[Rfam]
RNA: Small nucleolar RNA R12
Organism: Carpinus fangiana
RNA sequence: UGUUGGAUGAUUAGAAAAAUCAGACGACUUCCCAUUGAUAUUUUGUUUGACAACACGUGACAUCAUAUCCACCUACUUCUCACAACA
Numbered sequence: 001u002g003u004u005g006g007a008u009g010a011u012u013a014g015a016a017a018a019a020u021c022a023g024a025c026g027a028c029u030u031c032c033c034a035u036u037g038a039u040a041u042u043u044u045g046u047u048u049g050a051c052a053a054c055a056c057g058u059g060a061c062a063u064c065a066u067a068u069c070c071a072c073c074u075a076c077u078u079c080u081c082a083c084a085a086c087a
Stems, first nucleotide, its partner, number of pairs: 001087005